The family of this 105-nucleotide RNA from Glycine soja is "mir-395 microRNA precursor family". Rfam links the family to the GO terms RISC complex and miRNA-mediated post-transcriptional gene silencing.
RNA sequence: GUGUCACCUAGUGUUCCCUCGAACACUUCAACGAGGAAAGCAGUUUUGAAAUUAUAUACCUUCAUUUCUCCUCUCUGAAGUGUUUGGGGGAACCCCUGGUAGCAU
Numbered sequence: 001g002u003g004u005c006a007c008c009u010a011g012u013g014u015u016c017c018c019u020c021g022a023a024c025a026c027u028u029c030a031a032c033g034a035g036g037a038a039a040g041c042a043g044u045u046u047u048g049a050a051a052u053u054a055u056a057u058a059c060c061u062u063c064a065u066u067u068c069u070c071c072u073c074u075c076u077g078a079a080g081u082g083u084u085u086g087g088g089g090g091a092a093c094c095c096c097u098g099g100u101a102g103c104a105u
Stems, first nucleotide, its partner, number of pairs: 006100003011095001013093008022085002024082007033073003
Rfam 15.1 lists 2,798 matches to the family in 234 species. It scores 63 bits against the family's covariance model. mir-395 was identified in both Arabidopsis thaliana and Oryza sativa computationally and was later experimentally verified. mir-395 is thought to target mRNAs coding for ATP sulphurylases.